Overview: The family of this 137-nucleotide sequence from Alligator sinensis is "Small nucleolar RNA SNORA31". For this family Rfam cites "RNomics: an experimental approach that identifies 201 candidates for novel, small, non-messenger RNAs in mouse" (Huttenhofer et al., EMBO J, 2001). Rfam's curators write: ACA31 (SNORA31) belongs to the H/ACA class of snoRNAs which are thought to guide the sites of modification of uridines to pseudouridines. ACA31 is predicted to guide the pseudouridylation of U3713 in 28S rRNA and U218 in 18S rRNA. This family includes the mouse homologue snoMBI-161. Lineage of the source: Eukaryota > Sarcopterygii > Archelosauria > Alligatorinae > Alligator. Pairs were carried over by alignment from the consensus structure, which was predicted with RNAalifold. The family's RNA type in Rfam is H/ACA-box small nucleolar RNA. The family has 5 seed sequences and 2,094 matches in Rfam 15.1.

RNA sequence: CUGCAUCUAUUUGACAGACCUGGAGCAAAUUACCAUUGCUCAUUUGGUUUUUUACUAAGAUGCAAAAGUAAAGUCAUUCCCUGCGCUUUCUGCCUGUCCAUCACAUGACAGCCCAGAUUGAAUAAGGGAAUAUAUAU
Numbered sequence: 001c002u003g004c005a006u007c008u009a010u011u012u013g014a015c016a017g018a019c020c021u022g023g024a025g026c027a028a029a030u031u032a033c034c035a036u037u038g039c040u041c042a043u044u045u046g047g048u049u050u051u052u053u054a055c056u057a058a059g060a061u062g063c064a065a066a067a068g069u070a071a072a073g074u075c076a077u078u079c080c081c082u083g084c085g086c087u088u089u090c091u092g093c094c095u096g097u098c099c100a101u102c103a104c105a106u107g108a109c110a111g112c113c114c115a116g117a118u119u120g121a122a123u124a125a126g127g128g129a130a131u132a133u134a135u136a137u
Stems, first nucleotide, its partner, number of pairs: 002064007011054001013053001016050005023041006078129005086120001089117004094111005